Shown here is a 47-nucleotide sequence from Danionella cerebrum, a member of the family "Histone 3' UTR stem-loop". Taxonomically the source falls in Danionella (Eukaryota, Teleostei, Ostariophysi, Cypriniphysae). From the family's description: The mRNAs of metazoan histone genes lack a poly-A tail. 3' end processing occurs at a site between a highly conserved stem-loop (modelled by this family) and a purine rich region around 20 nts downstream (the histone downstream element, or HDE). The stem-loop is bound by a 31 kDa stem-loop binding protein (SLBP - also termed the histone hairpin binding protein, or HBP). Together with U7 snRNA binding of the HDE, SLBP binding nucleate s the formation of the processing complex. The histone 3' UTR stem-loop is also involved in nucleocytoplasmic transport of the mRNA, and in stability regulation and translation efficiency in the cytoplasm. The family's RNA type in Rfam is cis-regulatory element.

[Rfam]
RNA sequence: CCAAAGGCUCUUUUAAGAGCCACCCAACAUUUCUAAAGAAAGAGUUU
Numbered sequence: 001c002c003a004a005a006g007g008c009u010c011u012u013u014u015a016a017g018a019g020c021c022a023c024c025c026a027a028c029a030u031u032u033c034u035a036a037a038g039a040a041a042g043a044g045u046u047u
Stems, first nucleotide, its partner, number of pairs: 006021006